[Rfam]
RNA: Fumarate/nitrate reductase regulator sRNA
Organism: Xenorhabdus bovienii
RNA sequence: GCAGGUGAAUACAACGUUGGGUGAUGAACGUUGUGCUCCAUAAUUGUAGUUUUUCUCAAAUUGAGCUUUGUACAGAAUAAUUGACCAUAAUUAUGCCGAUGUCAGUUUUUACAUCGGCUAUU
Numbered sequence: 001g002c003a004g005g006u007g008a009a010u011a012c013a014a015c016g017u018u019g020g021g022u023g024a025u026g027a028a029c030g031u032u033g034u035g036c037u038c039c040a041u042a043a044u045u046g047u048a049g050u051u052u053u054u055c056u057c058a059a060a061u062u063g064a065g066c067u068u069u070g071u072a073c074a075g076a077a078u079a080a081u082u083g084a085c086c087a088u089a090a091u092u093a094u095g096c097c098g099a100u101g102u103c104a105g106u107u108u109u110u111a112c113a114u115c116g117g118c119u120a121u122u
Base pairs, nucleotide, nucleotide: 001047002046003045004044007038008037010035011034012033013032014031015030016029017028018027065085066083069077071075095118096117097116098115099114100113101112102111